[Rfam]
RNA sequence: GAAACGCGAACCAAGCGGCGGCGAAGACCGCGUGAGCCUUGGAGCUGUCGCCGGCAACGGCGACAUGCA
Number, nucleotide and partner (000 for none) at each position: 001g000002a000003a000004a000005c000006g000007c000008g000009a000010a000011c042012c041013a040014a039015g038016c000017g000018g031019c030020g029021g028022c000023g000024a000025a000026g000027a000028c021029c020030g019031c018032g000033u000034g000035a000036g000037c000038c015039u014040u013041g012042g011043a000044g000045c000046u065047g064048u063049c062050g061051c060052c059053g058054g000055c000056a000057a000058c053059g052060g051061c050062g049063a048064c047065a046066u000067g000068c000069a000
The record is a 69-nucleotide sequence from Bifidobacterium pullorum, which matches "Transposase-2 RNA" in Rfam. It is annotated as a small RNA.